Repression of heat shock gene expression (ROSE) element: a 100-nucleotide RNA from Rhizobium sp. BK376. Rfam describes the family as follows. This family represents a 5' UTR cis-regulatory element found in heat shock mRNAs and is known as the ROSE (repression of heat shock gene expression) element.
[Rfam]
RNA sequence: UCGAUUGCCCAAUUGGAAUCGACGAAGUCCAGGAGGCGCCAUGUGCUCUUGGCGCCUCCUUGUAUCCAUGUUGCUUACAAGGAGGAUAUGGCUAUGAGGA
Numbered sequence: 001u002c003g004a005u006u007g008c009c010c011a012a013u014u015g016g017a018a019u020c021g022a023c024g025a026a027g028u029c030c031a032g033g034a035g036g037c038g039c040c041a042u043g044u045g046c047u048c049u050u051g052g053c054g055c056c057u058c059c060u061u062g063u064a065u066c067c068a069u070g071u072u073g074c075u076u077a078c079a080a081g082g083a084g085g086a087u088a089u090g091g092c093u094a095u096g097a098g099g100a
Base pairs, nucleotide, nucleotide: 001022002021003020004019005018006017008016009015033058034057035056036055037054038053039052040051041050059098060097061096062095063094064093066091067090068089069088070087071086072085074084075083076082
Annotation
NCBI's taxonomy places the organism under Bacteria, Alphaproteobacteria, Hyphomicrobiales, Rhizobiaceae, Rhizobium. On this family, see Nocker et al., Nucleic Acids Res 2001: "A mRNA-based thermosensor controls expression of rhizobial heat shock genes".